[Rfam]
The family of this 177-nucleotide RNA from Wenjunlia tyrosinilytica is "Streptomyces sRNA scr5239".

RNA sequence: GCUCCACCCGCACCGCACAGGCGGGUGGUCGGAGGCGACGGCGUUCUCUGCCCUGACUGCGCAGCCGCCUCCCGGUCGGUCGACCGUGCUCCACGUGGUCCGCACACCCGUGGUGCCCGCGGCCGACGUCAGCUCCGGGCUGCGGUACCGGACAGGUUGAGGGUCCUGUCCCGGUGC
Numbered sequence: 001g002c003u004c005c006a007c008c009c010g011c012a013c014c015g016c017a018c019a020g021g022c023g024g025g026u027g028g029u030c031g032g033a034g035g036c037g038a039c040g041g042c043g044u045u046c047u048c049u050g051c052c053c054u055g056a057c058u059g060c061g062c063a064g065c066c067g068c069c070u071c072c073c074g075g076u077c078g079g080u081c082g083a084c085c086g087u088g089c090u091c092c093a094c095g096u097g098g099u100c101c102g103c104a105c106a107c108c109c110g111u112g113g114u115g116c117c118c119g120c121g122g123c124c125g126a127c128g129u130c131a132g133c134u135c136c137g138g139g140c141u142g143c144g145g146u147a148c149c150g151g152a153c154a155g156g157u158u159g160a161g162g163g164u165c166c167u168g169u170c171c172c173g174g175u176g177c
Base pairs, nucleotide, nucleotide: 004028005027006026008024009023010022011021032071033070034069035068036067039064041062043060044059045056046055076126077125078124079123080122081121082120086116087115088114089113090112132146133145134144136142137141150171151170152169153168154167155166156165

Its family is annotated with mRNA binding and negative regulation of translation in the Gene Ontology.
A reference for the family is Vockenhuber et al. (2015), "Identification of metE as a second target of the sRNA scr5239 in Streptomyces coelicolor", PLoS One.
Rfam classes the family as a small RNA.